Record summary
Shown here is a 52-nucleotide RNA from Brevirhabdus pacifica, a member of the family "ffh sRNA". The base pairs follow the family's consensus structure, which is taken from published work. NCBI's taxonomy places the organism under Bacteria, Alphaproteobacteria, Rhodobacterales, Paracoccaceae, Brevirhabdus. For this family Rfam cites "Identification of candidate structured RNAs in the marine organism 'Candidatus Pelagibacter ubique'" (Meyer et al., BMC Genomics, 2009).
[Rfam]
RNA sequence: UCUAGCGGGGAUCGACACCCACCAGCGAGUUUCGCCCGUGGGUGCAUUUCGC
Numbered sequence: 001u002c003u004a005g006c007g008g009g010g011a012u013c014g015a016c017a018c019c020c021a022c023c024a025g026c027g028a029g030u031u032u033c034g035c036c037c038g039u040g041g042g043u044g045c046a047u048u049u050c051g052c
Stems, first nucleotide, its partner, number of pairs: 016044007025035004